[Rfam]
RNA sequence: UUCGUUCAUCUCCUACGGGAGACGCAAAAGCCGACUGAAGGAACGGGAA
Numbered sequence: 001u002u003c004g005u006u007c008a009u010c011u012c013c014u015a016c017g018g019g020a021g022a023c024g025c026a027a028a029a030g031c032c033g034a035c036u037g038a039a040g041g042a043a044c045g046g047g048a049a
Base pairs, nucleotide, nucleotide: 003045004044005043006042007041009022010021011020012019013018025046029036030035
RNA: Glutamine riboswitch aptamer (glnA leader)